[Rfam]
RNA sequence: UUAGAAAAAGGCAAACCACUCGAAAGGUUGGGACGCAAAGCUUCAGGUCUAAGGUUUGUAACUACGAUGGCUGAGCUGCCUAAA
Numbered sequence: 001u002u003a004g005a006a007a008a009a010g011g012c013a014a015a016c017c018a019c020u021c022g023a024a025a026g027g028u029u030g031g032g033a034c035g036c037a038a039a040g041c042u043u044c045a046g047g048u049c050u051a052a053g054g055u056u057u058g059u060a061a062c063u064a065c066g067a068u069g070g071c072u073g074a075g076c077u078g079c080c081u082a083a084a
Stems, first nucleotide, its partner, number of pairs: 001084001003081002011036002016031003020027002034070001039077004044073003047068003